rhtB sRNA: an 83-nucleotide sequence. The base pairs follow the family's consensus structure, which is taken from published work. On this family, see Meyer et al., BMC Genomics 2009: "Identification of candidate structured RNAs in the marine organism 'Candidatus Pelagibacter ubique'". By type it is a small RNA.
RNA sequence: UUAUGCUAAAAUUUAUAAGAUAGUCCUUCUUAGCCAUCUUUAGCUCCCGGUUUUUAAGGACUAUCCAACUCAUUAAAAUGCUU
Numbered sequence: 001u002u003a004u005g006c007u008a009a010a011a012u013u014u015a016u017a018a019g020a021u022a023g024u025c026c027u028u029c030u031u032a033g034c035c036a037u038c039u040u041u042a043g044c045u046c047c048c049g050g051u052u053u054u055u056a057a058g059g060a061c062u063a064u065c066c067a068a069c070u071c072a073u074u075a076a077a078a079u080g081c082u083u
Stems, first nucleotide, its partner, number of pairs: 019065009032052004